[Rfam]
RNA sequence: AACCAAUGAUGCUGUGAUUCUGCCAAAUGAUAAGAUGUGAUAUCACACAUAUAACCGUUCCACUUCAUUUCUGAGGUU
Numbered sequence: 001a002a003c004c005a006a007u008g009a010u011g012c013u014g015u016g017a018u019u020c021u022g023c024c025a026a027a028u029g030a031u032a033a034g035a036u037g038u039g040a041u042a043u044c045a046c047a048c049a050u051a052u053a054a055c056c057g058u059u060c061c062a063c064u065u066c067a068u069u070u071c072u073g074a075g076g077u078u
Base pairs, nucleotide, nucleotide: 001078002077003076004075